[Rfam]
RNA sequence: AAGUGAAAUGGUGAUGACGUUCACCCUAAUACAAGCUAAUUGUUGAUGACGUCUGUCUUAAU
Numbered sequence: 001a002a003g004u005g006a007a008a009u010g011g012u013g014a015u016g017a018c019g020u021u022c023a024c025c026c027u028a029a030u031a032c033a034a035g036c037u038a039a040u041u042g043u044u045g046a047u048g049a050c051g052u053c054u055g056u057c058u059u060a061a062u
Stems, first nucleotide, its partner, number of pairs: 010025004016053006031043004
Rfam assigns this 62-nucleotide RNA from Lacticaseibacillus camelliae to the family "Fluoride riboswitch aptamer (crcB RNA motif)". On this family, see Zhao et al., Nat Chem Biol 2017: "An excited state underlies gene regulation of a transcriptional riboswitch". NCBI's taxonomy places the organism under Bacteria, Bacillati, Lactobacillaceae, Lacticaseibacillus, Lacticaseibacillus camelliae. It scores 38 bits against the family's covariance model.